[Rfam]
Nucleotides: 080
Base pairs, nucleotide, nucleotide: 001080002079003078004077005076006075007074
Number, partner (000 for none) and nucleotide at each position: 001080c002079u003078g004077a005076g006075c007074u008000g009000g010000u011000g012000a013000u014000g015000a016000u017000g018000c019000u020000a021000a022000g023000u024000u025000a026000u027000c028000c029000c030000u031000g032000u033000c034000u035000g036000a037000a038000a039000a040000a041000g042000a043000a044000a045000a046000c047000u048000u049000c050000c051000u052000u053000u054000g055000u056000g057000g058000a059000a060000u061000u062000c063000u064000g065000a066000c067000u068000c069000u070000c071000u072000g073000a074007g075006g076005c077004u078003c079002a080001g
Rfam assigns this 80-nucleotide RNA sequence from Chrysemys picta to the family "Small nucleolar RNA R38". snoR38 is a C/D box small nucleolar RNA conserved across yeast, human, Arabidopsis and rice. It is encoded in the intron of elongation factor-1 gamma in both pombe and cerevisiae. snoR38 guides the methylation of 2'-O-ribose sites in 28S rRNA. Taxonomically the source falls in Chrysemys picta (Eukaryota, Euteleostomi, Sauropsida, Emydidae). The family's RNA type in Rfam is C/D-box small nucleolar RNA.